[Rfam]
RNA sequence: GGCUGUAAUGGCCCAACGGGGAAAGCACUCGCAAUUCUCAAUUCAACGACCCAGUCCCAGUUCGAACCCCCCAGUCGGCGCCCAACACGAAUGCUGCGGUGGCCGUCCACUCGCUUGGGUAACCAGCGAUGCUGCGUACGGCCCUAAGCAAUGGAGAUUACCCUUGAGGGAGGCUUCACUCUGCAGAGACAUCUCCACCGUCGCGUGGCGUGUUGGAUUACGAUCGCUGGGGGUAUGGGUAGGAGAGUUGAGAUGGAGUAGACGACUCCAAUUUCUUUUU
Numbered sequence: 001g002g003c004u005g006u007a008a009u010g011g012c013c014c015a016a017c018g019g020g021g022a023a024a025g026c027a028c029u030c031g032c033a034a035u036u037c038u039c040a041a042u043u044c045a046a047c048g049a050c051c052c053a054g055u056c057c058c059a060g061u062u063c064g065a066a067c068c069c070c071c072c073a074g075u076c077g078g079c080g081c082c083c084a085a086c087a088c089g090a091a092u093g094c095u096g097c098g099g100u101g102g103c104c105g106u107c108c109a110c111u112c113g114c115u116u117g118g119g120u121a122a123c124c125a126g127c128g129a130u131g132c133u134g135c136g137u138a139c140g141g142c143c144c145u146a147a148g149c150a151a152u153g154g155a156g157a158u159u160a161c162c163c164u165u166g167a168g169g170g171a172g173g174c175u176u177c178a179c180u181c182u183g184c185a186g187a188g189a190c191a192u193c194u195c196c197a198c199c200g201u202c203g204c205g206u207g208g209c210g211u212g213u214u215g216g217a218u219u220a221c222g223a224u225c226g227c228u229g230g231g232g233g234u235a236u237g238g239g240u241a242g243g244a245g246a247g248u249u250g251a252g253a254u255g256g257a258g259u260a261g262a263c264g265a266c267u268c269c270a271a272u273u274u275c276u277u278u279u280u
Stems, first nucleotide, its partner, number of pairs: 001013003018277006025269001027267001029265003037258001038251007047242001049240003069232007077224001079222002082216008091206004096201004101143001103141004107134001108131001111129005117124002144148001152197007163188003170181003
The family of this 280-nucleotide RNA sequence from Sodiomyces alkalinus is "Fungal signal recognition particle RNA". Gene Ontology terms of the family: signal recognition particle, endoplasmic reticulum targeting, signal recognition particle, plasma membrane targeting and SRP-dependent cotranslational protein targeting to membrane, signal sequence recognition. Clan: SRP clan. The family has 50 seed sequences and 748 matches in Rfam 15.1. The literature on the family includes a 2002 paper in Curr Opin Struct Biol by Wild et al., "Towards the structure of the mammalian signal recognition particle".